[Rfam]
RNA sequence: AAUGGCAAAUGAAGAAUUGAUUAAUUUAUGCUUAAAACGCCGAUGAACAGUGUUGACAAACAAUCUCCGCUUAUUAUCUGAUGCCAUA
Numbered sequence: 001a002a003u004g005g006c007a008a009a010u011g012a013a014g015a016a017u018u019g020a021u022u023a024a025u026u027u028a029u030g031c032u033u034a035a036a037a038c039g040c041c042g043a044u045g046a047a048c049a050g051u052g053u054u055g056a057c058a059a060a061c062a063a064u065c066u067c068c069g070c071u072u073a074u075u076a077u078c079u080g081a082u083g084c085c086a087u088a
Base pairs, nucleotide, nucleotide: 003086004085005084006083007082